[Rfam]
RNA sequence: UCACCGGCGCGUUAGGGGUAGGAGCGGAAAUCCUUUUUUGUUUUUCACAAAAAAGGUUGGAGCGGAUAGCCCGGCGCCAG
Numbered sequence: 001u002c003a004c005c006g007g008c009g010c011g012u013u014a015g016g017g018g019u020a021g022g023a024g025c026g027g028a029a030a031u032c033c034u035u036u037u038u039u040g041u042u043u044u045u046c047a048c049a050a051a052a053a054a055g056g057u058u059g060g061a062g063c064g065g066a067u068a069g070c071c072c073g074g075c076g077c078c079a080g
Base pairs, nucleotide, nucleotide: 015072016071017070019068020067024063025062029058030057031056032055035053036052039049040048041047
Background: Rfam assigns this 80-nucleotide sequence from Cytophaga hutchinsonii to the family "Flavo-1 RNA". It is annotated as a small RNA. The organism belongs to Cytophaga hutchinsonii, within Bacteria.